This 70-nucleotide sequence from Bacillus sp. J14TS2 belongs to the Rfam family "Bacillaceae-1 RNA".
Taxonomically the source falls in Bacillus (Bacteria, Bacillati, Bacillota, Bacillaceae).
By type it is a small RNA.
Pairs were carried over by alignment from the consensus structure, which is taken from published work.
[Rfam]
RNA sequence: UAAAAAGGACUAAGUCGGCUAAGAGCGCUGACGCCCUGUCUGCAACGCCGACACUAGUAUAUCCUAUACG
Numbered sequence: 001u002a003a004a005a006a007g008g009a010c011u012a013a014g015u016c017g018g019c020u021a022a023g024a025g026c027g028c029u030g031a032c033g034c035c036c037u038g039u040c041u042g043c044a045a046c047g048c049c050g051a052c053a054c055u056a057g058u059a060u061a062u063c064c065u066a067u068a069c070g
Base pairs, nucleotide, nucleotide: 011053014052015051016050017049018048019047028042030040031039032038057069058068059067060066